A member of the RNA family "BsrG" from Oceanobacillus picturae, 266 nucleotides long. Rfam links the family to the GO terms toxin activity and autolysis. It is annotated as a small RNA. About the family: bsrE, bsrG and bsrH pair through intermolecular interactions with antisense sRNAs. The family has 6 seed sequences and 614 matches in Rfam 15.1. The family's consensus secondary structure was predicted with WAR.
RNA sequence: CAAUAGACUGGCUUCACAUGAGGGAGUUGGUGCACUUCUCUUUUUAGGAAGAUUCCUAAAAAGGAGGUGAUGCCAAUGGGGAUUGAAUCGGUGUUAACGUUAAUGAUAUCCUUUGGGAUGCUUAUUGCGUUUAUCAUGUCUGACAAGAACCAAAAAAAAUAACCCCUCAUGUGUUUUAGCCAGGCGCUGAGGGAUUACUUCUCUGAGUGUACCGCCCCCUUAUGGGGUUGGUCUAUUGGAACCGUUCCAUGUGUCCAGCAUGGAGC
Number, nucleotide and partner (000 for none) at each position: 001c238002a237003a236004u235005a000006g233007a232008c231009u000010g229011g000012c000013u000014u000015c000016a000017c171018a170019u169020g168021a167022g166023g165024g164025a000026g163027u162028u161029g000030g000031u000032g000033c069034a068035c067036u066037u065038c064039u063040c000041u000042u000043u000044u000045u000046a000047g000048g000049a000050a000051g000052a000053u000054u000055c000056c000057u000058a000059a000060a000061a000062a000063g039064g038065a037066g036067g035068u034069g033070a000071u000072g000073c000074c000075a000076a000077u000078g000079g000080g141081g140082a000083u000084u000085g000086a000087a000088u106089c105090g104091g000092u000093g000094u000095u000096a000097a000098c000099g000100u000101u000102a000103a000104u090105g089106a088107u000108a000109u000110c000111c000112u000113u000114u000115g135116g134117g000118a132119u000120g000121c000122u000123u000124a000125u000126u000127g000128c000129g000130u000131u000132u118133a000134u116135c115136a000137u000138g000139u000140c081141u080142g000143a000144c000145a000146a000147g000148a000149a000150c000151c000152a000153a000154a000155a000156a000157a000158a000159a000160u000161a028162a027163c026164c024165c023166c022167u021168c020169a019170u018171g017172u000173g000174u000175u000176u000177u000178a000179g000180c000181c205182a204183g203184g000185c000186g000187c000188u000189g000190a000191g000192g000193g000194a000195u000196u000197a000198c000199u000200u000201c000202u000203c183204u182205g181206a000207g000208u000209g000210u000211a000212c000213c000214g000215c227216c226217c225218c224219c000220u000221u000222a000223u000224g218225g217226g216227g215228u000229u010230g000231g008232u007233c006234u000235a004236u003237u002238g001239g000240a000241a000242c000243c000244g266245u265246u264247c263248c262249a261250u260251g259252u258253g000254u000255c000256c000257a000258g252259c251260a250261u249262g248263g247264a246265g245266c244